A member of the RNA family "Eukaryotic small subunit ribosomal RNA" from Pugettia quadridens, 187 nucleotides of a longer RNA. The family is grouped with related families in Rfam's "SSU clan". The sequence is in the family's curated seed alignment.
[Rfam]
RNA sequence: CGCCCGGUCGCUACUACCGAUUGAAUGAUUUAGUGAGGCUUCGGAUUGGCGCUCUUGGAUGCCUGGCCCGCCUUCCGGUGGGCUUUUUAGGCGCCUCGAGCUGACUAAAGAUGUCCAAACUUGAUCAUUUAGAGGAAGUAAAAGUCGUAACAAGGUUUCCGUAGGUGAACCUGCGGAAGGAUCAUUA
Numbered sequence: 001c002g003c004c005c006g007g008u009c010g011c012u013a014c015u016a017c018c019g020a021u022u023g024a025a026u027g028a029u030u031u032a033g034u035g036a037g038g039c040u041u042c043g044g045a046u047u048g049g050c051g052c053u054c055u056u057g058g059a060u061g062c063c064u065g066g067c068c069c070g071c072c073u074u075c076c077g078g079u080g081g082g083c084u085u086u087u088u089a090g091g092c093g094c095c096u097c098g099a100g101c102u103g104a105c106u107a108a109a110g111a112u113g114u115c116c117a118a119a120c121u122u123g124a125u126c127a128u129u130u131a132g133a134g135g136a137a138g139u140a141a142a143a144g145u146c147g148u149a150a151c152a153a154g155g156u157u158u159c160c161g162u163a164g165g166u167g168a169a170c171c172u173g174c175g176g177a178a179g180g181a182u183c184a185u186u187a
Stems, first nucleotide, its partner, number of pairs: 001154001002151001005147002009144001012140004017135002021131001023130008032121003037116002040113001046107001048105001050103002052100003057095001060093007156179010